Nucleotides: 037
Base pairs, nucleotide, nucleotide: 005033006032007031008030009027010026013023014022015021
Number, partner (000 for none) and nucleotide at each position: 001000c002000u003000u004000u005033c006032a007031a008030c009027c010026c011000a012000u013023c014022u015021c016000a017000c018000u019000c020000c021015g022014g023013g024000a025000g026010g027009g028000g029000u030008g031007u032006u033005g034000a035000a036000a037000c
CRISPR RNA direct repeat element: a 37-nucleotide sequence from Brunnivagina elsteri. The organism belongs to Brunnivagina elsteri, within Bacteria. It scores 38 bits against the family's covariance model. The base pairs follow the family's consensus structure, which was predicted with WAR. Rfam links the family to the GO term defense response.